This 200-nucleotide sequence from Planoprotostelium fungivorum belongs to the Rfam family "U2 spliceosomal RNA".
The family is grouped with related families in Rfam's "U2 clan".
The literature on the family includes a 1990 paper in Nucleic Acids Res by Thomas et al., "The spliceosomal snRNAs of Caenorhabditis elegans".
The organism belongs to Planoprotostelium, within Eukaryota.

RNA sequence: AUCACUUAAACUCGUCUAAUAUCGCCGCAGUGUAGUAUCUGUUCUUAUCAGUUUAGUCGACUGAUAGCCCUGGGUACUCCAGGGCAUCCGACUAAAUUAAUUUUUCUCACGGGUGAGAGGGUCAACACCGGAGCUUGCGAAGGUGCCUCUUACACGGAUGAAUUCAGCAUUGCACUGAAGCUGACUUUCGUCCACCGUUC
Numbered sequence: 001a002u003c004a005c006u007u008a009a010a011c012u013c014g015u016c017u018a019a020u021a022u023c024g025c026c027g028c029a030g031u032g033u034a035g036u037a038u039c040u041g042u043u044c045u046u047a048u049c050a051g052u053u054u055a056g057u058c059g060a061c062u063g064a065u066a067g068c069c070c071u072g073g074g075u076a077c078u079c080c081a082g083g084g085c086a087u088c089c090g091a092c093u094a095a096a097u098u099a100a101u102u103u104u105u106c107u108c109a110c111g112g113g114u115g116a117g118a119g120g121g122u123c124a125a126c127a128c129c130g131g132a133g134c135u136u137g138c139g140a141a142g143g144u145g146c147c148u149c150u151u152a153c154a155c156g157g158a159u160g161a162a163u164u165c166a167g168c169a170u171u172g173c174a175c176u177g178a179a180g181c182u183g184a185c186u187u188u189c190g191u192c193c194a195c196c197g198u199u200c
Base pairs, nucleotide, nucleotide: 001020002019046066047065048064049063050062051061068084069083070082071081072080073079074078113153114152115151116150117149118148119147120146133138156193157192158191159190160189161188164184165183166182167181168180